Shown here is a 94-nucleotide RNA from Amborella trichopoda, a member of the family "Small nucleolar RNA Z122". The family's RNA type in Rfam is C/D-box small nucleolar RNA. Gene Ontology terms of the family: nucleolus and RNA processing. The family has 23 seed sequences and 822 matches in Rfam 15.1. A search with the family's covariance model found it, with a score of 45 bits.

[Rfam]
RNA sequence: AUUGGGAAAUGAUGAACCAUUUGAAAAUAAUCCGAGGCAUUUUGCCAUGUGCUUAUGCCCUUGUUGAAUUAUUGCACGUCAGUCUGAUCCCACG
Number, nucleotide and partner (000 for none) at each position: 001a000002u000003u092004g091005g090006g089007a088008a000009a000010u000011g000012a000013u000014g000015a000016a000017c000018c000019a000020u000021u000022u000023g000024a000025a000026a000027a000028u000029a000030a000031u000032c000033c000034g000035a000036g000037g000038c000039a000040u000041u000042u000043u000044g000045c000046c000047a000048u000049g000050u000051g000052c000053u000054u000055a000056u000057g000058c000059c000060c000061u000062u000063g000064u000065u000066g000067a000068a000069u000070u000071a000072u000073u000074g000075c000076a000077c000078g000079u000080c000081a000082g000083u000084c000085u000086g000087a000088u007089c006090c005091c004092a003093c000094g000